[Rfam]
RNA: SAM-I/IV (S-adenosyl methionine) riboswitch aptamer
RNA sequence: GCAUCACAUCAAGAGUUGGGUUCAGGCCCAACGCCAACCUGCUUUCCGGGCAAGGUGGCGCUUCCUUCGGGAAGGAUGUGGCCGAUCCGGCAACCAAACGGACCAAG
Numbered sequence: 001g002c003a004u005c006a007c008a009u010c011a012a013g014a015g016u017u018g019g020g021u022u023c024a025g026g027c028c029c030a031a032c033g034c035c036a037a038c039c040u041g042c043u044u045u046c047c048g049g050g051c052a053a054g055g056u057g058g059c060g061c062u063u064c065c066u067u068c069g070g071g072a073a074g075g076a077u078g079u080g081g082c083c084g085a086u087c088c089g090g091c092a093a094c095c096a097a098a099c100g101g102a103c104c105a106a107g
Stems, first nucleotide, its partner, number of pairs: 006079005015032001017030005033059003038055003041051003047101001081091004